Description
The record is a 259-nucleotide sequence from Corchorus capsularis, which matches "Early nodulin 40" in Rfam. Rfam 15.1 lists 341 matches to the family in 193 species.
RNA sequence: AUGGUAUUAUUUUGGCAAUCAAUGGGGUCUUCAUAAAGCAUGGGGGGGAUUUGGAGUUUGGGAUUCUUCUCCCUUCUCCAAAGAAUCAAAACUGUUUGCUUGUGCUUAACCAAUGGCUCAGCUAAACAGUACCAUAGAUAUACCGCCACCGCGCACGGAGGAGGAUCCCCUAGUAGCUAGCUAGCUAGCAGAAGCUUUUGGCUAAUGCAGUGGCAAACCGGCAAGUCACAGAACGGCAAUUGACUCAAUCAUGAGUCUU
Numbered sequence: 001a002u003g004g005u006a007u008u009a010u011u012u013u014g015g016c017a018a019u020c021a022a023u024g025g026g027g028u029c030u031u032c033a034u035a036a037a038g039c040a041u042g043g044g045g046g047g048g049a050u051u052u053g054g055a056g057u058u059u060g061g062g063a064u065u066c067u068u069c070u071c072c073c074u075u076c077u078c079c080a081a082a083g084a085a086u087c088a089a090a091a092c093u094g095u096u097u098g099c100u101u102g103u104g105c106u107u108a109a110c111c112a113a114u115g116g117c118u119c120a121g122c123u124a125a126a127c128a129g130u131a132c133c134a135u136a137g138a139u140a141u142a143c144c145g146c147c148a149c150c151g152c153g154c155a156c157g158g159a160g161g162a163g164g165a166u167c168c169c170c171u172a173g174u175a176g177c178u179a180g181c182u183a184g185c186u187a188g189c190a191g192a193a194g195c196u197u198u199u200g201g202c203u204a205a206u207g208c209a210g211u212g213g214c215a216a217a218c219c220g221g222c223a224a225g226u227c228a229c230a231g232a233a234c235g236g237c238a239a240u241u242g243a244c245u246c247a248a249u250c251a252u253g254a255g256u257c258u259u
Base pairs, nucleotide, nucleotide: 053079054078055077094218095217096216097215098214099213113206114205242257243256244255245254246253